[Rfam]
RNA sequence: AUCUUAUCAAGAGAAGUGGAGGGACUGGCCCUAUGAAGCUCGGCAACCUGGAUGCUGUGGUAUGUAUUCAAUGGUGCUAAUUCCGUCAGGGAAACCUGAAAGAUAAGAA
Number, nucleotide and partner (000 for none) at each position: 001a000002u108003c107004u106005u105006a104007u103008c102009a000010a000011g000012a000013g041014a000015a040016g039017u038018g000019g000020a000021g031022g030023g029024a000025c000026u085027g084028g083029c023030c022031c021032u000033a000034u000035g000036a000037a000038g017039c016040u015041c013042g078043g077044c076045a075046a000047c074048c073049u070050g069051g068052a067053u066054g065055c064056u000057g000058u000059g000060g000061u000062a000063u000064g055065u054066a053067u052068u051069c050070a049071a000072u000073g048074g047075u045076g044077c043078u042079a000080a000081u000082u101083c028084c027085g026086u000087c098088a097089g096090g095091g000092a000093a000094a000095c090096c089097u088098g087099a000100a000101a082102g008103a007104u006105a005106a004107g003108a002109a000
Rfam assigns this 109-nucleotide sequence from Clostridium luticellarii to the family "SAM riboswitch aptamer (S box leader)". Gene Ontology term of the family: regulation of gene expression. Lineage of the source: Bacteria > Bacillati > Clostridia > Clostridiaceae > Clostridium.